[Rfam]
RNA sequence: UCCCGUCAUGAGCUGGAGUGAGCGGGUCUAUGGAUGACCCAGGAAAGUCCCCGGGCCCUUCUCCGCAGAAAUGCGGCCCUGGAAACAGGAACUCUCGGUGCAACGAAUCUACCUGCCUAGUGCGGAUGGCUGAGACAAGUGUGGAGCCUACAGAUUCGUUGCCUGGGUAACUUGGCCGACUGCUACAGUUAUUCACUCAGGUCCACAACACUGUGGGCCAACAGAACGGGGCUUACAACUCAUGGCGUC
Numbered sequence: 001u002c003c004c005g006u007c008a009u010g011a012g013c014u015g016g017a018g019u020g021a022g023c024g025g026g027u028c029u030a031u032g033g034a035u036g037a038c039c040c041a042g043g044a045a046a047g048u049c050c051c052c053g054g055g056c057c058c059u060u061c062u063c064c065g066c067a068g069a070a071a072u073g074c075g076g077c078c079c080u081g082g083a084a085a086c087a088g089g090a091a092c093u094c095u096c097g098g099u100g101c102a103a104c105g106a107a108u109c110u111a112c113c114u115g116c117c118u119a120g121u122g123c124g125g126a127u128g129g130c131u132g133a134g135a136c137a138a139g140u141g142u143g144g145a146g147c148c149u150a151c152a153g154a155u156u157c158g159u160u161g162c163c164u165g166g167g168u169a170a171c172u173u174g175g176c177c178g179a180c181u182g183c184u185a186c187a188g189u190u191a192u193u194c195a196c197u198c199a200g201g202u203c204c205a206c207a208a209c210a211c212u213g214u215g216g217g218c219c220a221a222c223a224g225a226a227c228g229g230g231g232c233u234u235a236c237a238a239c240u241c242a243u244g245g246c247g248u249c
Stems, first nucleotide, its partner, number of pairs: 004247008016198006024040005045234003049231004064075004078089004093169001095167001100162006108154003115147002135142002201218006
The record is a 249-nucleotide RNA from Populus alba, which matches "RNase MRP" in Rfam. The family's RNA type in Rfam is ribozyme. A search with the family's covariance model found it, with a score of 67 bits. The base pairs follow the family's consensus structure, which is taken from published work. Its Rfam clan is "RNaseP clan".